[Rfam]
RNA sequence: GCCCCCGAAGAGGGGGCGAAACACCCGGGCGCCAAGACGGCGGCGUCGGGGGGAACGGGUGCAAAGCACCCAAAGAUGAACCCCGCCCUCCAGCCCGGGUCACA
Numbered sequence: 001g002c003c004c005c006c007g008a009a010g011a012g013g014g015g016g017c018g019a020a021a022c023a024c025c026c027g028g029g030c031g032c033c034a035a036g037a038c039g040g041c042g043g044c045g046u047c048g049g050g051g052g053g054a055a056c057g058g059g060u061g062c063a064a065a066g067c068a069c070c071c072a073a074a075g076a077u078g079a080a081c082c083c084c085g086c087c088c089u090c091c092a093g094c095c096c097g098g099g100u101c102a103c104a
Stems, first nucleotide, its partner, number of pairs: 001017006023100008047085005057071006
RNA: Pab19 RNA
Organism: Thermococcus gammatolerans